[Rfam]
Rfam assigns this 55-nucleotide sequence from Aloysia citrodora to the family "Plastid-psbA-3 3UTR RNA". A reference for the family is Richter et al. (2023), "Retrograde signaling in plants: A critical review focusing on the GUN pathway and beyond", Plant Commun. Lineage of the source: Eukaryota > Embryophyta > Gunneridae > Pentapetalae > Aloysia. Plastid psbA-3 is a non-coding RNA (ncRNA) present in plastids. It was identified in inverted repeat sequences in the 3 prime untranslate region (3UTR) of photosystem II quinone-binding protein (psbA). By type it is a cis-regulatory element. Clan: Plastid-psbA 3UTR RNA clan.

RNA sequence: AAAGGAGCAAUAAACCCUCUUGUUCUAUCACAAGAAAGAGUUUAUUGCUCCUUAU
Numbered sequence: 001a002a003a004g005g006a007g008c009a010a011u012a013a014a015c016c017c018u019c020u021u022g023u024u025c026u027a028u029c030a031c032a033a034g035a036a037a038g039a040g041u042u043u044a045u046u047g048c049u050c051c052u053u054a055u
Stems, first nucleotide, its partner, number of pairs: 002053012020035002023032001